[Rfam]
RNA sequence: GGGGCCGUAGUCUAGCCUGGCUAGGAUGCCGGCCUGGGGUCGGACCCCGCUAGAACGCCGGUGAUCCCGGGUUCAAAUCCCGGCGGCCCCA
Numbered sequence: 001g002g003g004g005c006c007g008u009a010g011u012c013u014a015g016c017c018u019g020g021c022u023a024g025g026a027u028g029c030c031g032g033c034c035u036g037g038g039g040u041c042g043g044a045c046c047c048c049g050c051u052a053g054a055a056c057g058c059c060g061g062u063g064a065u066c067c068c069g070g071g072u073u074c075a076a077a078u079c080c081c082g083g084c085g086g087c088c089c090c091a
Stems, first nucleotide, its partner, number of pairs: 001090007010027004029061005067083005
The record is a 91-nucleotide RNA sequence from Pyrobaculum aerophilum, which matches "tRNA" in Rfam.
Its family is annotated with triplet codon-amino acid adaptor activity in the Gene Ontology.
NCBI's taxonomy places the organism under Archaea, Thermoproteota, Thermoprotei, Thermoproteaceae, Pyrobaculum aerophilum.
It is annotated as a transfer RNA.